[Rfam]
RNA sequence: AGCCAUGCGCUGAGCACAGAGCGAACUAUUCUUUCGCCUUUUACUAAAGAAUACCGUGUGCACGGUGCUUUAAAUGGUAUACCCCUAUUUUUGAAAAGGUGCACCUCUGUGGGUGCC
Numbered sequence: 001a002g003c004c005a006u007g008c009g010c011u012g013a014g015c016a017c018a019g020a021g022c023g024a025a026c027u028a029u030u031c032u033u034u035c036g037c038c039u040u041u042u043a044c045u046a047a048a049g050a051a052u053a054c055c056g057u058g059u060g061c062a063c064g065g066u067g068c069u070u071u072a073a074a075u076g077g078u079a080u081a082c083c084c085c086u087a088u089u090u091u092u093g094a095a096a097a098g099g100u101g102c103a104c105c106u107c108u109g110u111g112g113g114u115g116c117c
Base pairs, nucleotide, nucleotide: 003077004076005075006074008067009066010065011064012063014061015060016059017058018057027053028052029051030050031049032048033047034046101116102115103114104113105112
The record is a 117-nucleotide RNA from Rosa chinensis, which matches "U5 spliceosomal RNA" in Rfam. Taxonomically the source falls in Rosa (Eukaryota, Spermatophyta, Magnoliopsida, Rosales). The family's RNA type in Rfam is spliceosomal small nuclear RNA. The match comes from Rfam's covariance-model search (85 bits).